[Rfam]
RNA sequence: CGGUUUCGUUCGAACUGCAGACAGGGGCGGAGGAACCACAAGCGGCGCCGAGGCGCCUUGGGGUGGAGUCCGGCCGGCUGCGUCCUUGUCGUUGUGGAUGCGUGCUGCCCGGACCGGGUGCAUGUCUCGCCCGAAUCCGACAGCUAACUUCGCCGGUGCAUGAGAGGCUUC
Dot-bracket structure: (...(((................)))((((((....((....................))(((.....((((.....................................))))..((((.........))))...))).........)))))).)................

The family of this 171-nucleotide RNA sequence from Crystallibacter crystallopoietes is "c-di-AMP riboswitch aptamer (ydaO/yuaA leader)". Lineage of the source: Bacteria > Actinomycetota > Actinomycetes > Micrococcales > Crystallibacter. From the family's description: This family represents a conserved RNA structure found upstream of the ydaO and yuaA genes in Bacillus subtilis and related genes in other bacteria. Pairs were carried over by alignment from the consensus structure.